This 67-nucleotide RNA from Hyella patelloides belongs to the Rfam family "Glutamine riboswitch aptamer (glnA leader)".
Rfam links the family to the GO term glutamine binding.

RNA sequence: AUCGUUCAUCUAUCUAACUAAAAUUUAGAUAGACGGAAGUAGAGAAAAUCUCUCGAAGGAACGCGCU
Dot-bracket structure: ..(((((.(((((((((.......)))))))))..[.....(((.......)))....)))))]...
It scores 58 bits against the family's covariance model.